[Rfam]
RNA sequence: AAUCCAGUUAAUAAUGUCUGCUCAACUUGAAAGUGUUUUGCAGAGCAUAUUUUUAAAAUAAUGCUGGUAAAGUAAAGCCACAGUACGAGCCUUAAAGACUUGGUUGUCUUUGAGGUCCCAAGAGAUGGCUACAUCU
Numbered sequence: 001a002a003u004c005c006a007g008u009u010a011a012u013a014a015u016g017u018c019u020g021c022u023c024a025a026c027u028u029g030a031a032a033g034u035g036u037u038u039u040g041c042a043g044a045g046c047a048u049a050u051u052u053u054u055a056a057a058a059u060a061a062u063g064c065u066g067g068u069a070a071a072g073u074a075a076a077g078c079c080a081c082a083g084u085a086c087g088a089g090c091c092u093u094a095a096a097g098a099c100u101u102g103g104u105u106g107u108c109u110u111u112g113a114g115g116u117c118c119c120a121a122g123a124g125a126u127g128g129c130u131a132c133a134u135c136u
Stems, first nucleotide, its partner, number of pairs: 004067004017044005077129004089116007097108003
RNA: Small nucleolar RNA SNORA33